Rfam assigns this 78-nucleotide sequence from Schistosoma haematobium to the family "mir-3492 microRNA precursor family". Taxonomically the source falls in Schistosoma (Eukaryota, Protostomia, Platyhelminthes, Digenea). The match comes from Rfam's covariance-model search (45 bits).
[Rfam]
RNA sequence: AGUUUUUUGAAUCCGUGCUGAGAUUUCAUCAGACACCAACCCACUAUGGCUGAUCUGACUUCCAAUAUAAGUGAAGUU
Numbered sequence: 001a002g003u004u005u006u007u008u009g010a011a012u013c014c015g016u017g018c019u020g021a022g023a024u025u026u027c028a029u030c031a032g033a034c035a036c037c038a039a040c041c042c043a044c045u046a047u048g049g050c051u052g053a054u055c056u057g058a059c060u061u062c063c064a065a066u067a068u069a070a071g072u073g074a075a076g077u078u
Base pairs, nucleotide, nucleotide: 002077003076004075005074006073008071011068012067016064017063020061021060022059024058025057028054029053030052